[Rfam]
RNA: Guanidine-II riboswitch aptamer (mini-ykkC)
Nucleotides: 048
Stems, first nucleotide, its partner, number of pairs: 001021004005016004035048005
Number, partner (000 for none) and nucleotide at each position: 001021c002020g003019u004018c005016c006015g007014g008013g009000a010000c011000g012000a013008c014007c015006c016005g017000c018004g019003a020002c021001g022000a023000c024000c025000g026000a027000u028000u029000g030000u031000c032000g033000a034000c035048c036047c037046g038045g039044g040000a041000c042000g043000a044039c045038c046037c047036g048035g